[Rfam]
RNA sequence: CAUCCAUCGAGACCGGCGGAGGGACAGGCCCUUGGAAGCCGGGGCAACCUGCGGCAGGCGUCAUGUCUGCCGUGAGGUGCCAAAUCCUGCGGGGACCUGUUCAGCAGCGUCUGCCGGAAGAUGGGGC
Numbered sequence: 001c002a003u004c005c006a007u008c009g010a011g012a013c014c015g016g017c018g019g020a021g022g023g024a025c026a027g028g029c030c031c032u033u034g035g036a037a038g039c040c041g042g043g044g045c046a047a048c049c050u051g052c053g054g055c056a057g058g059c060g061u062c063a064u065g066u067c068u069g070c071c072g073u074g075a076g077g078u079g080c081c082a083a084a085u086c087c088u089g090c091g092g093g094g095a096c097c098u099g100u101u102c103a104g105c106a107g108c109g110u111c112u113g114c115c116g117g118a119a120g121a122u123g124g125g126g127c
Stems, first nucleotide, its partner, number of pairs: 003125006013042005021031003025089004043081004048077002050074009085119001090116003

A member of the RNA family "SAM riboswitch aptamer (S box leader)" from Thermomonas hydrothermalis, 127 nucleotides long. Its family is annotated with regulation of gene expression in the Gene Ontology. The family has 457 seed sequences and 9,625 matches in Rfam 15.1.